This 46-nucleotide RNA sequence from Cimex lectularius belongs to the Rfam family "Histone 3' UTR stem-loop".
RNA sequence: CCAACGGCCCUUCUCAGGGCCACCAAACAUUUCACUAUACGUAACA
Numbered sequence: 001c002c003a004a005c006g007g008c009c010c011u012u013c014u015c016a017g018g019g020c021c022a023c024c025a026a027a028c029a030u031u032u033c034a035c036u037a038u039a040c041g042u043a044a045c046a
Base pairs, nucleotide, nucleotide: 006021007020008019009018010017011016
The match comes from Rfam's covariance-model search (38 bits). The mRNAs of metazoan histone genes lack a poly-A tail. 3' end processing occurs at a site between a highly conserved stem-loop (modelled by this family) and a purine rich region around 20 nts downstream (the histone downstream element, or HDE). The stem-loop is bound by a 31 kDa stem-loop binding protein (SLBP - also termed the histone hairpin binding protein, or HBP). Together with U7 snRNA binding of the HDE, SLBP binding nucleate s the formation of the processing complex. The histone 3' UTR stem-loop is also involved in nucleocytoplasmic transport of the mRNA, and in stability regulation and translation efficiency in the cytoplasm. By type it is a cis-regulatory element.